[Rfam]
Rfam assigns this 73-nucleotide sequence from Microbacterium sp. No. 7 to the family "tRNA". Lineage of the source: Bacteria > Bacillati > Actinomycetota > Micrococcales > Microbacterium. Pairs were carried over by alignment from the consensus structure, which is taken from published work. A search with the family's covariance model found it, with a score of 70 bits. The family's RNA type in Rfam is transfer RNA. Its family is annotated with triplet codon-amino acid adaptor activity in the Gene Ontology.
RNA sequence: GCCGGCUUGGCGCAAUUGGUAGCGCACCGUACUUGUAAUACGGGGGUUGCAGGUUCGAGUCCUGUAGCCGGCA
Numbered sequence: 001g002c003c004g005g006c007u008u009g010g011c012g013c014a015a016u017u018g019g020u021a022g023c024g025c026a027c028c029g030u031a032c033u034u035g036u037a038a039u040a041c042g043g044g045g046g047u048u049g050c051a052g053g054u055u056c057g058a059g060u061c062c063u064g065u066a067g068c069c070g071g072c073a
Base pairs, nucleotide, nucleotide: 001072002071003070004069005068006067007066010025011024012023013022027043028042029041030040031039049065050064051063052062053061